[Rfam]
RNA sequence: AAUAGUAGCAGCAUAGUCGGGUGAGAAUCCCGAUCGCCGAAAGGGCUAGGUUUCCUCGGCAAUGUUCGUCAGCCGAGGGUUAGUCGAUCCUAAGGUGUACCCUAACCAGAGUACAUCGAAGAGGGAAACAGGUUAAUAUUCCUGUACCAUCCAGCAAUAAACUGACGCUUCCGGGAAGGUCAAGCGGCGCCGUCGCGCCGUUCAAGCAAAAUAGGUCUGUGGAGUGCCGUAAUGGCGAGAAGCAGAGCAAGUUGUGAUGACGUAAGUUGACUGAUCCCAGGAGCCCGUGAAAAGGGAGCUGGAUGAUCGUACCGAGAUCCGACACAGGUGCCCCUGGCUGAAUAGGCCAAGGCGUGA
Numbered sequence: 001a002a003u004a005g006u007a008g009c010a011g012c013a014u015a016g017u018c019g020g021g022u023g024a025g026a027a028u029c030c031c032g033a034u035c036g037c038c039g040a041a042a043g044g045g046c047u048a049g050g051u052u053u054c055c056u057c058g059g060c061a062a063u064g065u066u067c068g069u070c071a072g073c074c075g076a077g078g079g080u081u082a083g084u085c086g087a088u089c090c091u092a093a094g095g096u097g098u099a100c101c102c103u104a105a106c107c108a109g110a111g112u113a114c115a116u117c118g119a120a121g122a123g124g125g126a127a128a129c130a131g132g133u134u135a136a137u138a139u140u141c142c143u144g145u146a147c148c149a150u151c152c153a154g155c156a157a158u159a160a161a162c163u164g165a166c167g168c169u170u171c172c173g174g175g176a177a178g179g180u181c182a183a184g185c186g187g188c189g190c191c192g193u194c195g196c197g198c199c200g201u202u203c204a205a206g207c208a209a210a211a212u213a214g215g216u217c218u219g220u221g222g223a224g225u226g227c228c229g230u231a232a233u234g235g236c237g238a239g240a241a242g243c244a245g246a247g248c249a250a251g252u253u254g255u256g257a258u259g260a261c262g263u264a265a266g267u268u269g270a271c272u273g274a275u276c277c278c279a280g281g282a283g284c285c286c287g288u289g290a291a292a293a294g295g296g297a298g299c300u301g302g303a304u305g306a307u308c309g310u311a312c313c314g315a316g317a318u319c320c321g322a323c324a325c326a327g328g329u330g331c332c333c334c335u336g337g338c339u340g341a342a343u344a345g346g347c348c349a350a351g352g353c354g355u356g357a
Stems, first nucleotide, its partner, number of pairs: 016034006035354004043333004049313002054078006063071002085309003089124002094117006101109001128145005148305008162295002167284005173278003178272005183202006206255004216246005226236003261266001319328002335349004

This 357-nucleotide part of an RNA from Candidatus Syntropharchaeum butanivorans belongs to the Rfam family "Archaeal large subunit ribosomal RNA". The family is grouped with related families in Rfam's "LSU clan". Gene Ontology terms of the family: ribosome and structural constituent of ribosome.